A member of the RNA family "Fluoride riboswitch aptamer (crcB RNA motif)" from Humidesulfovibrio mexicanus, 62 nucleotides long.
RNA sequence: GAUGGCUCAGGGGAUGGAGUCCCCCGUGAACCGCGACAACCGCUGACGACUCCUGCCGCCGA
Dot-bracket structure: .........[[[[..((((((]]]].......(((.....)))....)))))).........
Gene Ontology terms of the family: positive regulation of gene expression and response to fluoride. The organism belongs to Humidesulfovibrio, within Bacteria.